Rfam assigns this 83-nucleotide sequence from Synaphobranchus kaupii to the family "mir-4524 microRNA precursor family".
Pairs were carried over by alignment from the consensus structure, which was predicted with RNAalifold.
RNA sequence: AUUUCUUUGACCGAUAGCACAAUAGGCCUAUCUGAAGUGGGAAAAACUUCAGAUAGGCCUAUUGUGCUAUCGGUCAAAGAAAU
Numbered sequence: 001a002u003u004u005c006u007u008u009g010a011c012c013g014a015u016a017g018c019a020c021a022a023u024a025g026g027c028c029u030a031u032c033u034g035a036a037g038u039g040g041g042a043a044a045a046a047c048u049u050c051a052g053a054u055a056g057g058c059c060u061a062u063u064g065u066g067c068u069a070u071c072g073g074u075c076a077a078a079g080a081a082a083u
Stems, first nucleotide, its partner, number of pairs: 003081005009075017027057009